[Rfam]
RNA sequence: GAUCCGGGACGACCCGAGGAUCCGGGACGACCCGAGGAUCCGGGACGACCCGA
Numbered sequence: 001g002a003u004c005c006g007g008g009a010c011g012a013c014c015c016g017a018g019g020a021u022c023c024g025g026g027a028c029g030a031c032c033c034g035a036g037g038a039u040c041c042g043g044g045a046c047g048a049c050c051c052g053a
Base pairs, nucleotide, nucleotide: 001022002021003020004019005016006015007014008013041052042051043050044049
Annotation: The family of this 53-nucleotide RNA sequence from Salarias fasciatus is "Guanidine-II riboswitch aptamer (mini-ykkC)". Pairs were carried over by alignment from the consensus structure, which is taken from published work. For this family Rfam cites "Identification of 22 candidate structured RNAs in bacteria using the CMfinder comparative genomics pipeline" (Weinberg et al., Nucleic Acids Res, 2007).